[Rfam]
Rfam assigns this 140-nucleotide sequence from Grantiella picta to the family "Small nucleolar RNA SNORA12". The family's consensus secondary structure was predicted with RNAalifold. For this family Rfam cites "A novel experimental approach for systematic identification of box H/ACA snoRNAs from eukaryotes" (Gu et al., Nucleic Acids Res, 2005). A search with the family's covariance model found it, with a score of 51 bits. From the family's description: U108 belongs to the H/ACA family of snoRNAs.

RNA sequence: UAUUGUGGUGGUUGCUGUUUGUGGCAGAUCUGUAAGCAUAUCAGAGCUGUAUCAGAACUACCACAGAGAUCAGAAAGGAGAAGGCUGUGCUGAGAACUUGAAGCUUUCAUUUUUCAGCUCUUCGUCCAACUCCUACAGGA
Numbered sequence: 001u002a003u004u005g006u007g008g009u010g011g012u013u014g015c016u017g018u019u020u021g022u023g024g025c026a027g028a029u030c031u032g033u034a035a036g037c038a039u040a041u042c043a044g045a046g047c048u049g050u051a052u053c054a055g056a057a058c059u060a061c062c063a064c065a066g067a068g069a070u071c072a073g074a075a076a077g078g079a080g081a082a083g084g085c086u087g088u089g090c091u092g093a094g095a096a097c098u099u100g101a102a103g104c105u106u107u108c109a110u111u112u113u114u115c116a117g118c119u120c121u122u123c124g125u126c127c128a129a130c131u132c133c134u135a136c137a138g139g140a
Stems, first nucleotide, its partner, number of pairs: 005064007024050002027047001029045004077133004099124004